This 172-nucleotide RNA from Eshraghiella crossota belongs to the Rfam family "Lysine riboswitch aptamer". The base pairs follow the family's consensus structure, which is taken from published work. Taxonomically the source falls in Eshraghiella crossota (Bacteria, Bacillati, Bacillota, Lachnospirales).

Nucleotides: 172
Stems, first nucleotide, its partner, number of pairs: 006167001008165004017083009033068007087115003090111008116142002119139008144157005
Number, partner (000 for none) and nucleotide at each position: 001000a002000a003000a004000g005000a006167g007000u008165g009164u010163a011162g012000a013000g014000g015000u016000u017083g018082c019081a020080c021079u022078g023077a024076u025075u026000a027000a028000c029000a030000g031000u032000a033068c034067a035066u036065u037064g038063u039062c040000u041000g042000a043000u044000a045000u046000g047000a048000c049000a050000g051000g052000a053000a054000u055000a056000g057000a058000u059000g060000a061000u062039g063038a064037c065036a066035a067034u068033g069000g070000a071000a072000a073000g074000g075025a076024g077023u078022c079021g080020g081019u082018g083017c084000c085000g086000a087115a088114g089113c090111u091110g092109u093108a094107u095106u096105a097104a098000c099000c100000u101000g102000u103000a104097u105096u106095a107094a108093u109092g110091c111090a112000a113089g114088c115087u116142g117141g118000g119139c120138a121137u122136a123135u124134a125133u126132a127000u128000a129000a130000u131000a132126u133125g134124u135123a136122u137121a138120u139119g140000a141117c142116u143000g144157u145156c146155a147154u148153c149000g150000u151000a152000a153148g154147a155146u156145g157144g158000g159000g160000a161000g162011c163010u164009a165008c166000c167006u168000a169000a170000a171000g172000u